Shown here is a 64-nucleotide RNA sequence from Gossypium arboreum, a member of the family "Plastid-clpP 5UTR RNA". Plastid clpP is a non-coding RNA (ncRNA) recognised in plastids.

RNA sequence: AUUGCUGAUAGUCAACAAGAAGCAGAUCUAUUCUAUACCCGAUAAGUAUCAAUACGCAAUGGGG
Numbered sequence: 001a002u003u004g005c006u007g008a009u010a011g012u013c014a015a016c017a018a019g020a021a022g023c024a025g026a027u028c029u030a031u032u033c034u035a036u037a038c039c040c041g042a043u044a045a046g047u048a049u050c051a052a053u054a055c056g057c058a059a060u061g062g063g064g
Stems, first nucleotide, its partner, number of pairs: 003017002006014003038063003046055003

The family's consensus secondary structure was predicted with LocARNA. It is annotated as a cis-regulatory element.